Source information
The family of this 105-nucleotide sequence from Upupa epops is "Small nucleolar RNA SNORD125". The family's RNA type in Rfam is C/D-box small nucleolar RNA. Rfam links the family to the GO terms nucleolus and RNA processing. NCBI's taxonomy places the organism under Eukaryota, Vertebrata, Archelosauria, Coraciimorphae, Upupa. The match comes from Rfam's covariance-model search (60 bits). Clan: SNORD61 clan. A reference for the family is Yang et al. (2006), "snoSeeker: an advanced computational package for screening of guide and orphan snoRNA genes in the human genome", Nucleic Acids Res.

RNA sequence: UUUGGGAACAGCCGCACGUGAUGACCCUUCCCUCUCUGAUGGCUGUGGUGUUGAUGACGAUCAAACCGAAGCCUCUAAGAAGUUGUCUGAAGGGGCUGUUCCGCC
Numbered sequence: 001u002u003u004g005g006g007a008a009c010a011g012c013c014g015c016a017c018g019u020g021a022u023g024a025c026c027c028u029u030c031c032c033u034c035u036c037u038g039a040u041g042g043c044u045g046u047g048g049u050g051u052u053g054a055u056g057a058c059g060a061u062c063a064a065a066c067c068g069a070a071g072c073c074u075c076u077a078a079g080a081a082g083u084u085g086u087c088u089g090a091a092g093g094g095g096c097u098g099u100u101c102c103g104c105c
Stems, first nucleotide, its partner, number of pairs: 007100007015092001